Nucleotides: 180
Base pairs, nucleotide, nucleotide: 006021012030013029014028015027016026017025018024041056042055043054047071048070049069050068051067052066053065083098084097085096089110090109091108092107093106094105095104
Number, partner (000 for none) and nucleotide at each position: 001000u002000a003000a004000u005000a006021u007000g008000a009000c010000u011000a012030a013029g014028a015027a016026a017025u018024c019000a020000a021006a022000a023000a024018g025017a026016u027015u028014u029013c030012u031000g032000u033000g034000a035000c036000a037000a038000a039000c040000a041056c042055g043054c044000u045000u046000c047071a048070c049069a050068a051067u052066g053065u054043g055042c056041g057000a058000c059000a060000a061000a062000g063000a064000a065053a066052c067051a068050u069049u070048g071047u072000u073000u074000a075000u076000g077000c078000a079000a080000a081000g082000g083098c084097a085096c086000u087000u088000c089110g090109c091108a092107a093106u094105g095104u096085g097084u098083g099000c100000u101000c102000a103000a104095a105094c106093a107092u108091u109090g110089c111000u112000u113000a114000u115000u116000c117000a118000a119000a120000c121000a122000c123000g124000c125000u126000u127000c128000a129000c130000a131000a132000u133000g134000u135000g136000c137000g138000a139000c140000a141000a142000a143000g144000a145000a146000a147000c148000a149000u150000u151000g152000u153000u154000a155000u156000a157000a158000g159000a160000g161000c162000u163000a164000a165000u166000g167000u168000u169000u170000u171000a172000c173000a174000u175000u176000g177000g178000c179000u180000c